[Rfam]
RNA: Enterococcus sRNA 64
Organism: Enterococcus hirae
RNA sequence: UAAGGCACACUCCUUUGAUUUUUGUUUAGGCACUUUAAUCAUACAAGGUUGUGUGCUUUUUGUGU
Numbered sequence: 001u002a003a004g005g006c007a008c009a010c011u012c013c014u015u016u017g018a019u020u021u022u023u024g025u026u027u028a029g030g031c032a033c034u035u036u037a038a039u040c041a042u043a044c045a046a047g048g049u050u051g052u053g054u055g056c057u058u059u060u061u062g063u064g065u
Stems, first nucleotide, its partner, number of pairs: 002059009012048004017040004024033002